[Rfam]
chrB-a RNA: an 82-nucleotide sequence from Palleronia pontilimi.
A search with the family's covariance model found it, with a score of 53 bits.
The source organism's lineage runs through Bacteria, Alphaproteobacteria, Rhodobacterales, Roseobacteraceae and Palleronia.
The family's consensus secondary structure is taken from published work.
Rfam classes the family as a cis-regulatory element.

RNA sequence: UCCACGGGGUGCGCGGACACCUCGCGAGGCUCCGGCCCAACACCCGCAUCCAGCCCCUGACAUCAGCCUUGGAUGCCCCAUG
Numbered sequence: 001u002c003c004a005c006g007g008g009g010u011g012c013g014c015g016g017a018c019a020c021c022u023c024g025c026g027a028g029g030c031u032c033c034g035g036c037c038c039a040a041c042a043c044c045c046g047c048a049u050c051c052a053g054c055c056c057c058u059g060a061c062a063u064c065a066g067c068c069u070u071g072g073a074u075g076c077c078c079c080a081u082g
Stems, first nucleotide, its partner, number of pairs: 005024006046076006